[Rfam]
RNA sequence: AGAUCUGCUCGUAAAGCCCGAGCAGGGUAAAAUAAAAAAAGCUUACUGAGA
Numbered sequence: 001a002g003a004u005c006u007g008c009u010c011g012u013a014a015a016g017c018c019c020g021a022g023c024a025g026g027g028u029a030a031a032a033u034a035a036a037a038a039a040a041g042c043u044u045a046c047u048g049a050g051a
Stems, first nucleotide, its partner, number of pairs: 006024006014044004
Notes:
The family of this 51-nucleotide sequence from Acetivibrio cellulolyticus is "6A RNA". Rfam classes the family as a small RNA. The family's consensus secondary structure is taken from published work. The source organism's lineage runs through Bacteria, Bacillati, Bacillota, Acetivibrionales and Acetivibrio cellulolyticus.